This 161-nucleotide RNA sequence from Eurypyga helias belongs to the Rfam family "U1 spliceosomal RNA". Rfam describes the family as follows. U1 is a small nuclear RNA (snRNA) component of the spliceosome (involved in pre-mRNA splicing). Its 5' end forms complementary base pairs with the 5' splice junction, thus defining the 5' donor site of an intron. There are significant differences in sequence and secondary structure between metazoan and yeast U1 snRNAs, the latter being much longer (568 nucleotides as compared to 164 nucleotides in human). Nevertheless, secondary structure predictions suggest that all U1 snRNAs share a 'common core' consisting of helices I, II, the proximal region of III, and IV. This family does not contain the larger yeast sequences. Gene Ontology terms of the family: U1 snRNP, mRNA 5'-splice site recognition and pre-mRNA 5'-splice site binding. For this family Rfam cites "Crystal structure of human spliceosomal U1 snRNP at 5.5 A resolution" (Pomeranz Krummel et al., Nature, 2009). Its Rfam clan is "U1 clan". Pairs were carried over by alignment from the consensus structure, which is taken from published work.
[Rfam]
RNA sequence: AUACUUACCUGGCAGGGGAGACACCAUGAUCAGGAUGGUGGUUUUCCCAGGACGAGGCUCAUUACUUGCACUCUGGAUUUGCUGACCCCUGCAAUUUCCCCAAAUGCAGGAAACUUGACUGCGUAAUUUGUGGUAGUGGGGGUCUGUUAGCUCUGUUUUUA
Numbered sequence: 001a002u003a004c005u006u007a008c009c010u011g012g013c014a015g016g017g018g019a020g021a022c023a024c025c026a027u028g029a030u031c032a033g034g035a036u037g038g039u040g041g042u043u044u045u046c047c048c049a050g051g052a053c054g055a056g057g058c059u060c061a062u063u064a065c066u067u068g069c070a071c072u073c074u075g076g077a078u079u080u081g082c083u084g085a086c087c088c089c090u091g092c093a094a095u096u097u098c099c100c101c102a103a104a105u106g107c108a109g110g111a112a113a114c115u116u117g118a119c120u121g122c123g124u125a126a127u128u129u130g131u132g133g134u135a136g137u138g139g140g141g142g143u144c145u146g147u148u149a150g151c152u153c154u155g156u157u158u159u160u161a
Stems, first nucleotide, its partner, number of pairs: 012122004016048006023042005049090003054086001056083003061078003092117003095113003099109001138160005146151001